[Rfam]
RNA: Group II catalytic intron D1-D4-3
RNA sequence: GCGACCGCGAGGUCGUGGCUGAAAGAAGUCGCAGGCAAAACUCCGACCGCAGGAAGACAAACUGGCAGAGAGGCCGGGCGUGGGCGACGAGCGUGCGAGGAACCGCGAAGUCCGAAGUCCAUCCAGACACGUCAGGUAGAGCCAGGCGGCGCGGAGGGAGAGUUCAGGUU
Numbered sequence: 001g002c003g004a005c006c007g008c009g010a011g012g013u014c015g016u017g018g019c020u021g022a023a024a025g026a027a028g029u030c031g032c033a034g035g036c037a038a039a040a041c042u043c044c045g046a047c048c049g050c051a052g053g054a055a056g057a058c059a060a061a062c063u064g065g066c067a068g069a070g071a072g073g074c075c076g077g078g079c080g081u082g083g084g085c086g087a088c089g090a091g092c093g094u095g096c097g098a099g100g101a102a103c104c105g106c107g108a109a110g111u112c113c114g115a116a117g118u119c120c121a122u123c124c125a126g127a128c129a130c131g132u133c134a135g136g137u138a139g140a141g142c143c144a145g146g147c148g149g150c151g152c153g154g155a156g157g158g159a160g161a162g163u164u165c166a167g168g169u170u
Base pairs, nucleotide, nucleotide: 001016002015003014004013005012006011028170030168035163036162041156042155043154044153045152047149048148049147050146062145063144064143065142066141073137074136075135077133078132079131080130081129083128086112087111088110091106092105093104